The family of this 66-nucleotide RNA is "L2-Alphaproteobacteria ribosomal protein leader". Rfam's curators put it in the seed alignment. Pairs were carried over by alignment from the consensus structure, which is taken from published work. Rfam classes the family as a cis-regulatory leader.
[Rfam]
RNA sequence: GGCCACCUACGGGGGGCUAUAACAGACAGGCGGGGUAACCCGCCGCAAAGCAACGGAAGACAGAAA
Numbered sequence: 001g002g003c004c005a006c007c008u009a010c011g012g013g014g015g016g017c018u019a020u021a022a023c024a025g026a027c028a029g030g031c032g033g034g035g036u037a038a039c040c041c042g043c044c045g046c047a048a049a050g051c052a053a054c055g056g057a058a059g060a061c062a063g064a065a066a
Base pairs, nucleotide, nucleotide: 001018002017003016004015006014007013008012029044030043031042032041033040034039